[Rfam]
Nucleotides: 100
Stems, first nucleotide, its partner, number of pairs: 001100003021083004031073002034070002040065002042059005
Number, partner (000 for none) and nucleotide at each position: 001100c002099g003098c004000a005000g006000u007000g008000a009000u010000g011000g012000u013000g014000u015000a016000a017000u018000u019000u020000g021083c022082g023081u024080c025000c026000u027000a028000c029000c030000c031073c032072g033000u034070u035069g036000a037000c038000u039000g040065g041064c042059g043058a044057c045056a046055g047000u048000u049000u050000g051000c052000c053000u054000g055046c056045u057044g058043u059042c060000a061000c062000a063000u064041g065040c066000c067000a068000u069035c070034a071000c072032u073031g074000g075000a076000g077000g078000c079000u080024g081023a082022c083021g084000a085000a086000c087000a088000c089000u090000g091000a092000g093000u094000c095000u096000g097000a098003g099002c100001g
The record is a 100-nucleotide RNA from Synaphobranchus kaupii, which matches "Small nucleolar RNA SNORD16" in Rfam.
The family has 5 seed sequences and 1,321 matches in Rfam 15.1.
The family's consensus secondary structure was predicted with PFOLD.